[Rfam]
RNA sequence: AGUUGCCAUUCUUUGGUUAUCUAGCUGUGUGAGGUUUAGCUUCAGUCAGCUCUUAUUUUCACAAGGCUAGAUUUCCAAACAAACGCACCU
Numbered sequence: 001a002g003u004u005g006c007c008a009u010u011c012u013u014u015g016g017u018u019a020u021c022u023a024g025c026u027g028u029g030u031g032a033g034g035u036u037u038a039g040c041u042u043c044a045g046u047c048a049g050c051u052c053u054u055a056u057u058u059u060c061a062c063a064a065g066g067c068u069a070g071a072u073u074u075c076c077a078a079a080c081a082a083a084c085g086c087a088c089c090u
Stems, first nucleotide, its partner, number of pairs: 001090002004087002009082002012079005019072008028063006
Rfam assigns this 90-nucleotide sequence from Echinococcus granulosus to the family "mir-9/mir-79 microRNA precursor family".
A reference for the family is Lagos-Quintana et al. (2002), "Identification of tissue-specific microRNAs from mouse", Curr Biol.
Gene Ontology terms of the family: RISC complex and miRNA-mediated post-transcriptional gene silencing.
The family's consensus secondary structure was predicted with RNAalifold.
The sequence is in the family's curated seed alignment.